This 68-nucleotide RNA sequence from Thiomonas bhubaneswarensis belongs to the Rfam family "int-alpA RNA".
By type it is a small RNA.
It scores 51 bits against the family's covariance model.
The family's consensus secondary structure is taken from published work.

RNA sequence: GCCCGGCCUAGGUUUGGCCGCCGAAAACCUGCCGCCCCUGGGCAGGCUGGCCGGGCACCCAUACAGGG
Numbered sequence: 001g002c003c004c005g006g007c008c009u010a011g012g013u014u015u016g017g018c019c020g021c022c023g024a025a026a027a028c029c030u031g032c033c034g035c036c037c038c039u040g041g042g043c044a045g046g047c048u049g050g051c052c053g054g055g056c057a058c059c060c061a062u063a064c065a066g067g068g
Base pairs, nucleotide, nucleotide: 001056002055003054004053005052006051007050008049011022012021013020028046029045030044031043032042036068037067038066039065040064
Background: Taxonomically the source falls in Thiomonas (Bacteria, Pseudomonadota, Betaproteobacteria, Burkholderiales).